[Rfam]
RNA sequence: AUUGUUUCUCAGCCUUUUAGCUAAGAUGGAGUGUAAUAUUUGUUUUUAGCAGUUUAGUAUCUACUAUAUCUUCUAUCUGAGGACAGUAUAUUAAAUGGAUUUUUGGAGCAGGGAGGUGGAACAAGAGCUUGCCCCAUCCACUGCACUCAUUGACCUGGUACUGUAGUACCUCUAGGAAUGGUACACCCUCU
Numbered sequence: 001a002u003u004g005u006u007u008c009u010c011a012g013c014c015u016u017u018u019a020g021c022u023a024a025g026a027u028g029g030a031g032u033g034u035a036a037u038a039u040u041u042g043u044u045u046u047u048a049g050c051a052g053u054u055u056a057g058u059a060u061c062u063a064c065u066a067u068a069u070c071u072u073c074u075a076u077c078u079g080a081g082g083a084c085a086g087u088a089u090a091u092u093a094a095a096u097g098g099a100u101u102u103u104u105g106g107a108g109c110a111g112g113g114a115g116g117u118g119g120a121a122c123a124a125g126a127g128c129u130u131g132c133c134c135c136a137u138c139c140a141c142u143g144c145a146c147u148c149a150u151u152g153a154c155c156u157g158g159u160a161c162u163g164u165a166g167u168a169c170c171u172c173u174a175g176g177a178a179u180g181g182u183a184c185a186c187c188c189u190c191u
Stems, first nucleotide, its partner, number of pairs: 007026003011022003047066003051062002069083005112144001114142002118138002125134001127132001149182004154176005
Shown here is a 191-nucleotide sequence from Puma concolor, a member of the family "U2 spliceosomal RNA". Taxonomically the source falls in Puma (Eukaryota, Amniota, Boreoeutheria, Felinae). The family has 208 seed sequences and 71,512 matches in Rfam 15.1. Rfam describes the family as follows. U2 is a small nuclear RNA (snRNA) component of the spliceosome (involved in pre-mRNA splicing). Complementary binding between U2 snRNA (in an area lying towards the 5' end but 3' to hairpin I) and the branchpoint sequence (BPS) of the intron results the bulging out of an unpaired adenosine, on the BPS, which initiates a nucleophilic attack at the intronic 5' splice site, thus starting the first of two transesterification reactions that mediate splicing. Its Rfam clan is "U2 clan".